Rfam assigns this 115-nucleotide RNA from Mobilicoccus pelagius to the family "SAM (S-adenosyl methionine) riboswitch aptamer". Rfam's curators write: SAM-IV is a mRNA element that regulates gene expression via direct sensing of S-adenosylmethionine (SAM or AdoMet). Pairs were carried over by alignment from the consensus structure, which is taken from published work. The literature on the family includes a 2008 paper in RNA by Weinberg et al., "The aptamer core of SAM-IV riboswitches mimics the ligand-binding site of SAM-I riboswitches". The family is grouped with related families in Rfam's "SAM clan". Rfam 15.1 lists 2,360 matches to the family in 1,305 species.
RNA sequence: GGUCAAGAGCGCCAGCGCGAAGCCCCGGCUCGCUGGCCGGCAACCCUCCACCUGCGGUGGGGUGCCCCGGGUGACGACCUGGCCGACCGCGCCCGCGUGUCGGCAAGCGAGGUGA
Numbered sequence: 001g002g003u004c005a006a007g008a009g010c011g012c013c014a015g016c017g018c019g020a021a022g023c024c025c026c027g028g029c030u031c032g033c034u035g036g037c038c039g040g041c042a043a044c045c046c047u048c049c050a051c052c053u054g055c056g057g058u059g060g061g062g063u064g065c066c067c068c069g070g071g072u073g074a075c076g077a078c079c080u081g082g083c084c085g086a087c088c089g090c091g092c093c094c095g096c097g098u099g100u101c102g103g104c105a106a107g108c109g110a111g112g113u114g115a
Stems, first nucleotide, its partner, number of pairs: 001079004009038001011037006021030002039066003044062003048057002082104006